[Rfam]
Background:
A member of the RNA family "Small nucleolar RNA Z199" from Gossypium mustelinum, 85 nucleotides long. Rfam 15.1 lists 953 matches to the family in 222 species. Rfam's curators write: snoZ199 is a C/D box small nucleolar RNA, which acts as a methylation guide RNA for sites on 18S and 25S rRNA. Rice snoZ199 is reported to be homologous to Arabidopsis snoR13. A reference for the family is Chen et al. (2003), "The high diversity of snoRNAs in plants: identification and comparative study of 120 snoRNA genes from Oryza sativa", Nucleic Acids Res. The organism belongs to Gossypium, within Eukaryota. A search with the family's covariance model found it, with a score of 52 bits.
RNA sequence: GAUCAGGUUGAUUGAGAAAAAAAAACUGCACACAAUAUGAAGGGAUUUGAUUUCCCAUGAUUACUUGUAUUUAAGUCUGAUGAUC
Numbered sequence: 001g002a003u004c005a006g007g008u009u010g011a012u013u014g015a016g017a018a019a020a021a022a023a024a025a026c027u028g029c030a031c032a033c034a035a036u037a038u039g040a041a042g043g044g045a046u047u048u049g050a051u052u053u054c055c056c057a058u059g060a061u062u063a064c065u066u067g068u069a070u071u072u073a074a075g076u077c078u079g080a081u082g083a084u085c
Base pairs, nucleotide, nucleotide: 001084003083004082005081042056043055044054045053